[Rfam]
RNA sequence: CAUCUCUAUGAGGAUUUCGUGUUAAUUAAAAGUAGUGGUCUGAUCCAUUGAUGAUAAUGUCUAUUCUGAGGGAUG
Numbered sequence: 001c002a003u004c005u006c007u008a009u010g011a012g013g014a015u016u017u018c019g020u021g022u023u024a025a026u027u028a029a030a031a032g033u034a035g036u037g038g039u040c041u042g043a044u045c046c047a048u049u050g051a052u053g054a055u056a057a058u059g060u061c062u063a064u065u066c067u068g069a070g071g072g073a074u075g
Base pairs, nucleotide, nucleotide: 001075002074003073004072005071006070
The record is a 75-nucleotide sequence from Manihot esculenta, which matches "Small nucleolar RNA R21" in Rfam. The base pairs follow the family's consensus structure, which was predicted with PFOLD. Rfam classes the family as a C/D-box small nucleolar RNA. Rfam links the family to the GO terms nucleolus and RNA processing.